The family of this 82-nucleotide RNA from Artemisia annua is "Small nucleolar RNA Z199". Taxonomically the source falls in Artemisia (Eukaryota, Spermatophyta, Mesangiospermae, Anthemideae). The match comes from Rfam's covariance-model search (70 bits). Rfam classes the family as a C/D-box small nucleolar RNA. snoZ199 is a C/D box small nucleolar RNA, which acts as a methylation guide RNA for sites on 18S and 25S rRNA. Rice snoZ199 is reported to be homologous to Arabidopsis snoR13.

RNA sequence: GUAUCAGAUGAUGAGAAACAUAACUGCAACAAAAUGAGCGAAUUCACAUUCGUGAUUACUAGUAUUUAAGUCUCUGAUGAUC
Numbered sequence: 001g002u003a004u005c006a007g008a009u010g011a012u013g014a015g016a017a018a019c020a021u022a023a024c025u026g027c028a029a030c031a032a033a034a035u036g037a038g039c040g041a042a043u044u045c046a047c048a049u050u051c052g053u054g055a056u057u058a059c060u061a062g063u064a065u066u067u068a069a070g071u072c073u074c075u076g077a078u079g080a081u082c
Stems, first nucleotide, its partner, number of pairs: 001082001004080003039052005